[Rfam]
RNA sequence: CCUGAGGCUAGAGUCACAUACUGACACAUCUUUUGUCCUGGUGUGCUAGAGUCCUCAAAGAGAAUCUGCUGGUCUUGAUUCACUGGCGAGGGCAAUCUGUGCCCCUGGUAGUGCCCAGAUCAGAAACAUGC
Numbered sequence: 001c002c003u004g005a006g007g008c009u010a011g012a013g014u015c016a017c018a019u020a021c022u023g024a025c026a027c028a029u030c031u032u033u034u035g036u037c038c039u040g041g042u043g044u045g046c047u048a049g050a051g052u053c054c055u056c057a058a059a060g061a062g063a064a065u066c067u068g069c070u071g072g073u074c075u076u077g078a079u080u081c082a083c084u085g086g087c088g089a090g091g092g093c094a095a096u097c098u099g100u101g102c103c104c105c106u107g108g109u110a111g112u113g114c115c116c117a118g119a120u121c122a123g124a125a126a127c128a129u130g131c
Base pairs, nucleotide, nucleotide: 003057004056005055006054007052008051009050012047013046015045016044017043018042019041023037024036025035026034069123070122071121072120073119074118075117077115081113082112083111084110085109088106090104091103092102093101

Rfam assigns this 131-nucleotide RNA sequence from Suricata suricatta to the family "Small nucleolar RNA SNORA3/SNORA45 family". A search with the family's covariance model found it, with a score of 121 bits. The members of this family belong to the H/ACA class of snoRNAs which are thought to guide the sites of modification of uridines to pseudouridines. This family includes mouse snoMBI-28 and human homologues ACA3 (SNORA3) and ACA3-2 (SNORA45). Pairs were carried over by alignment from the consensus structure, which was predicted with RNAalifold. Lineage of the source: Eukaryota > Metazoa > Bilateria > Sarcopterygii > Suricata. The family is grouped with related families in Rfam's "SNORA3 clan".